[Rfam]
RNA sequence: GGAUGUGAGGGCGAUCUGGCUGCGACAUCUGUCACCCCAUUGAUCGCCAGGGUUGAUUCGGCUGAUCUGGCUGGCUAGGCGGGUGUCCCCUUCCUCUCUCACGGCUCCAUGUGCGUCCCUCCCGAAGCUGCGCGCUCGGUGGAAGAGGACGACCAUCCCAGAUAGAAGGAGUGUACUGUUCUUCGGUCAAGGGUAUACGAUAGCUGCGCUCCCCUGCUAGAACCUCCAAACAAGCUCAAGGUCCCUUUUACAAAGGGUAUGGUAUAAGGUUUUUGAGGAGAUUAGAGAAAUAAAGUACUGAAAUAUCAACAAAAACAGCACUAUUAUUUUUAAUAGGAAAUGAUGGUGUCAGUAAUU
Numbered sequence: 001g002g003a004u005g006u007g008a009g010g011g012c013g014a015u016c017u018g019g020c021u022g023c024g025a026c027a028u029c030u031g032u033c034a035c036c037c038c039a040u041u042g043a044u045c046g047c048c049a050g051g052g053u054u055g056a057u058u059c060g061g062c063u064g065a066u067c068u069g070g071c072u073g074g075c076u077a078g079g080c081g082g083g084u085g086u087c088c089c090c091u092u093c094c095u096c097u098c099u100c101a102c103g104g105c106u107c108c109a110u111g112u113g114c115g116u117c118c119c120u121c122c123c124g125a126a127g128c129u130g131c132g133c134g135c136u137c138g139g140u141g142g143a144a145g146a147g148g149a150c151g152a153c154c155a156u157c158c159c160a161g162a163u164a165g166a167a168g169g170a171g172u173g174u175a176c177u178g179u180u181c182u183u184c185g186g187u188c189a190a191g192g193g194u195a196u197a198c199g200a201u202a203g204c205u206g207c208g209c210u211c212c213c214c215u216g217c218u219a220g221a222a223c224c225u226c227c228a229a230a231c232a233a234g235c236u237c238a239a240g241g242u243c244c245c246u247u248u249u250a251c252a253a254a255g256g257g258u259a260u261g262g263u264a265u266a267a268g269g270u271u272u273u274u275g276a277g278g279a280g281a282u283u284a285g286a287g288a289a290a291u292a293a294a295g296u297a298c299u300g301a302a303a304u305a306u307c308a309a310c311a312a313a314a315a316c317a318g319c320a321c322u323a324u325u326a327u328u329u330u331u332a333a334u335a336g337g338a339a340a341u342g343a344u345g346g347u348g349u350c351a352g353u354a355a356u357u
Base pairs, nucleotide, nucleotide: 001108002107003106005102006101007100008099009098010097011096013093014092018090019089024087025086026085027084028083029082030081031080032079033078035074036073037070038069039068042067043066044065045064046062047061048060117173118169119168120167121165122139123138124137125136127135128134140162147158148157149156203271205269210264212262213261215259216258217257225253230249232248233247234246294357295356296355298352299351300350301349
RNA: 7SK RNA